Shown here is a 138-nucleotide sequence from Alkaliphilus metalliredigens, a member of the family "PyrR binding site". The family's consensus secondary structure is taken from published work.
[Rfam]
RNA sequence: UUUUCCUUUAAUUAAGUCCUGUGAGACUGAAAGGGUUACGCAUACAAUGCGAUGAAUGUACAGAAUACAUGUUACCAUGUACUUUGUACUAUUUGUGUAUACCUUAACCUUUGGUCUCUGACCAAAGGUUUUUUGUUU
Numbered sequence: 001u002u003u004u005c006c007u008u009u010a011a012u013u014a015a016g017u018c019c020u021g022u023g024a025g026a027c028u029g030a031a032a033g034g035g036u037u038a039c040g041c042a043u044a045c046a047a048u049g050c051g052a053u054g055a056a057u058g059u060a061c062a063g064a065a066u067a068c069a070u071g072u073u074a075c076c077a078u079g080u081a082c083u084u085u086g087u088a089c090u091a092u093u094u095g096u097g098u099a100u101a102c103c104u105u106a107a108c109c110u111u112u113g114g115u116c117u118c119u120g121a122c123c124a125a126a127g128g129u130u131u132u133u134u135g136u137u138u
Stems, first nucleotide, its partner, number of pairs: 004035005013030001015028004058089007066081006106130011
Rfam describes the family as follows. This family represents the PyrR binding site and terminator structure. This RNA structure is found upstream of a variety of genes involved in pyrimidine biosynthesis and transport. Lineage of the source: Bacteria > Bacillati > Natronincolaceae > Alkaliphilus > Alkaliphilus metalliredigens. The match comes from Rfam's covariance-model search (55 bits). By type it is a cis-regulatory element. A reference for the family is Bonner et al. (2001), "Molecular recognition of pyr mRNA by the Bacillus subtilis attenuation regulatory protein PyrR", Nucleic Acids Res.